RNA: PyrR binding site
RNA sequence: AAAACUUUUAAACUGGUCCAGAGAGGCUAGCAAGGUUGUGAACAUGAAUAUUAAAUCCUUUUGAACCAAAAGGGAAUACUCUAUCUUCUUUGCACUUGCUGUUUCUGGCAGGUGCUUUUUUCUU
Numbered sequence: 001a002a003a004a005c006u007u008u009u010a011a012a013c014u015g016g017u018c019c020a021g022a023g024a025g026g027c028u029a030g031c032a033a034g035g036u037u038g039u040g041a042a043c044a045u046g047a048a049u050a051u052u053a054a055a056u057c058c059u060u061u062u063g064a065a066c067c068a069a070a071a072g073g074g075a076a077u078a079c080u081c082u083a084u085c086u087u088c089u090u091u092g093c094a095c096u097u098g099c100u101g102u103u104u105c106u107g108g109c110a111g112g113u114g115c116u117u118u119u120u121u122c123u124u
Base pairs, nucleotide, nucleotide: 003037004036005035006034007033008032013030014029015028016027017026018025050080052078053077056074057073058072059071060070061069062068092115093114094113095112096111097110098109099108100107101106